The family of this 139-nucleotide sequence from Clostridium sp. CAG:510 is "FMN riboswitch aptamer (RFN element)". A search with the family's covariance model found it, with a score of 97 bits. Lineage of the source: Bacteria > Bacillati > Clostridia > Eubacteriales > Clostridium. Rfam describes the family as follows. The RFN element is a highly conserved domain that is found frequently in the 5'-untranslated regions of prokaryotic mRNAs that encode for flavin mononucleotide (FMN) biosynthesis and transport proteins. This element is a metabolite-dependent riboswitch that directly binds FMN in the absence of proteins. In Bacillus subtilis, the riboswitch most likely controls gene expression by causing premature transcription termination within the 5' untranslated region of the ribDEAHT operon and precluding access to the ribosome-binding site of ypaA mRNA.The FMN riboswitch structure, reported in present an FMN-bound six-stem junction, adopts a butterfly-like scaffold, stapled together by opposingly directed but nearly identically folded peripheral domains. The base pairs follow the family's consensus structure, which is taken from published work.
RNA sequence: AUAGAUCUUCGGGGCAGGGUGAGAUUCCCUACUGGCAGUGAUGCAGCGAAAGCUGAUAGGUCUGCGACCCAUGCAAUGCAUGGCUGAACCGGUCAGAAUCCGGUACCAACAGUUACAGUCUGGAUGAAAGAAGAGAAAA
Number, nucleotide and partner (000 for none) at each position: 001a000002u000003a000004g000005a000006u134007c133008u132009u131010c130011g000012g000013g000014g000015c000016a000017g029018g028019g027020u000021g000022a000023g000024a000025u000026u000027c019028c018029c017030u000031a119032c118033u108034g107035g065036c064037a063038g062039u000040g000041a000042u000043g000044c000045a000046g000047c000048g000049a000050a000051a000052g000053c000054u000055g000056a000057u000058a000059g000060g106061u105062c038063u037064g036065c035066g000067a000068c000069c083070c082071a000072u000073g000074c000075a000076a000077u000078g000079c000080a000081u000082g070083g069084c000085u000086g000087a000088a104089c103090c102091g101092g100093u000094c000095a000096g000097a000098a000099u000100c092101c091102g090103g089104u088105a061106c060107c034108a033109a000110c122111a121112g120113u000114u000115a000116c000117a000118g032119u031120c112121u111122g110123g000124a000125u000126g000127a000128a000129a000130g010131a009132a008133g007134a006135g000136a000137a000138a000139a000